RNA sequence: UCAGACGGCCGGGCGGCCGCUGGUCCUGGGCUGGUUCCAGGGCUGGAGGAAAGUCCGGGCUCCACGGGAAUACGGUGCUGGUCAACGGCCAGCGGGGGCGACCCCAGGGAAAGUGCCACAGAAAUCAGACCGCCAGCCCGGCUCGCCGCGCUGGUAAGGGUGAAACGGUGCGGUAAGAGCGCACCGCGCCCCUGGCAACAGGGGCGGCACGGUAAACCCCACCGGGAGCAAGGCCGAAUAGGGGUGGCCGGCGGGAGUUCCGCGAGGGACUCGGCCGCGGGGACGUUCCCGUCCCGCCACCCGGGUUGGCCGCGAGAGGCAUGCCGCGAGGCAUGUCCCAGAGGAAUGGUCGCCUCAUUCCGCCGGCAUGGCCGGUGGGAUGGACAGAACCCGGCUUACAGGCCGUCUGACGCA
Dot-bracket structure: ((((((((((((((((((.(((((((((.........)))))))))....[[[.[[[[[((((....[.[..((((((((((.....)))))(((((....)))).)((...(((((............((((((((.((......)).))))))..)).......((((((.......))))))(((((((((....)))))))).)..)))..)))))))))))))...((((......((((((................................(((((..].].))))).)))))).....))))......((((((((....))))))))..........)))))))...................................]]]]]]]].).))))))))))....
RNA: Bacterial RNase P class A
Organism: Teichococcus cervicalis